This 199-nucleotide sequence from Vibrio caribbeanicus belongs to the Rfam family "GcvB RNA". Rfam classes the family as a non-coding RNA gene. On this family, see Sharma et al., Genes Dev 2007: "A small RNA regulates multiple ABC transporter mRNAs by targeting C/A-rich elements inside and upstream of ribosome-binding sites". The gcvB gene encodes a small untranslated RNA involved in expression of the dipeptide and oligopeptide transport systems in Escherichia coli. Included several unknown homologues in alignment (Bateman A pers obs). A search with the family's covariance model found it, with a score of 92 bits.
[Rfam]
Nucleotides: 199
Stems, first nucleotide, its partner, number of pairs: 010042003015039002021037007069085006087100005140165001142163002170192008
Number, partner (000 for none) and nucleotide at each position: 001000c002000a003000g004000c005000a006000a007000g008000g009000a010042g011041u012040c013000a014000g015039a016038a017000c018000g019000g020000c021037u022036u023035g024034a025033u026032u027031c028000u029000u030000u031027g032026a033025a034024u035023c036022a037021a038016u039015u040012g041011a042010c043000a044000u045000u046000u047000u048000g049000u050000u051000g052000c053000g054000a055000u056000g057000u058000u059000g060000u061000g062000u063000u064000u065000g066000c067000a068000a069085a070084a071083c072082u073081c074080g075000u076000a077000u078000u079000u080074c081073g082072a083071g084070u085069u086000c087100g088099g089098u090097a091096g092000g093000u094000u095000u096091c097090u098089a099088c100087c101000a102000g103000u104000u105000u106000c107000g108000u109000u110000u111000c112000c113000a114000a115000a116000a117000g118000a119000a120000u121000c122000g123000g124000a125000a126000c127000a128000u129000a130000u131000a132000c133000u134000u135000c136000c137000u138000g139000u140165a141000u142163u143162u144000a145000u146000u147000u148000u149000g150000a151000c152000c153000u154000g155000u156000c157000u158000g159000u160000c161000a162143a163142a164000u165140u166000u167000u168000u169000u170192a171191g172190c173189a174188c175187c176186g177185c178000c179000u180000a181000u182000a183000a184000g185177g186176c187175g188174g189173u190172g191171u192170u193000u194000u195000u196000u197000u198000a199000u